[Rfam]
RNA sequence: UCAUGCUUGGCUCCUUGUACGCCACACGCAGCCGAUUUUUUUGAAUAAAAUUGGUAUCCACUUGUGGCAUACAGGGAGCCAGGCAUGA
Number, nucleotide and partner (000 for none) at each position: 001u088002c087003a086004u085005g084006c083007u000008u081009g080010g079011c078012u077013c076014c075015u000016u073017g072018u071019a070020c000021g068022c067023c066024a065025c000026a000027c000028g061029c000030a000031g000032c000033c000034g000035a000036u000037u000038u000039u000040u000041u000042u000043g000044a000045a000046u000047a000048a000049a000050a000051u000052u000053g000054g000055u000056a000057u000058c000059c000060a000061c028062u000063u000064g000065u024066g023067g022068c021069a000070u019071a018072c017073a016074g000075g014076g013077a012078g011079c010080c009081a008082g000083g006084c005085a004086u003087g002088a001
RNA: mir-160 microRNA precursor family